RNA sequence: CGGGGGUGCAUUGUGGUUGCAUUGCAUGUGUGGUUGAAGAGUGCAAUGCCCCUGCAGUGCAGCCCUG
Numbered sequence: 001c002g003g004g005g006g007u008g009c010a011u012u013g014u015g016g017u018u019g020c021a022u023u024g025c026a027u028g029u030g031u032g033g034u035u036g037a038a039g040a041g042u043g044c045a046a047u048g049c050c051c052c053u054g055c056a057g058u059g060c061a062g063c064c065c066u067g
Base pairs, nucleotide, nucleotide: 001067002066003065004064006063007061008060009059010058011057012056013055014054015053016052019049021047022046023045024044025043026042027041